Annotation:
This 136-nucleotide sequence from Hypoxylon sp. CI-4A belongs to the Rfam family "U4 spliceosomal RNA". NCBI's taxonomy places the organism under Eukaryota, Opisthokonta, sordariomyceta, Xylariomycetidae, Hypoxylon.

RNA sequence: AUCUUAGUGCACGGGCUUUACGCGUCACAGUGAGGAGCAAUCCGAGUGCGUGUUUUUGCUAGUUGAAAACUAUUUACUGACCGCUCCAUCUUGGUUUCGGCCGGGAUGGGAAUUUUUGGAACCCUCUCUUUUGAGA
Dot-bracket structure: ...................(((((.(((.....(((....)))..))))))))...............................(((((((((((....))))))))))).............(((......))).
Numbered sequence: 001a002u003c004u005u006a007g008u009g010c011a012c013g014g015g016c017u018u019u020a021c022g023c024g025u026c027a028c029a030g031u032g033a034g035g036a037g038c039a040a041u042c043c044g045a046g047u048g049c050g051u052g053u054u055u056u057u058g059c060u061a062g063u064u065g066a067a068a069a070c071u072a073u074u075u076a077c078u079g080a081c082c083g084c085u086c087c088a089u090c091u092u093g094g095u096u097u098c099g100g101c102c103g104g105g106a107u108g109g110g111a112a113u114u115u116u117u118g119g120a121a122c123c124c125u126c127u128c129u130u131u132u133g134a135g136a
Stems, first nucleotide, its partner, number of pairs: 020053005026048003034043003085110011124135003
Description: Pairs were carried over by alignment from the consensus structure, which is taken from published work.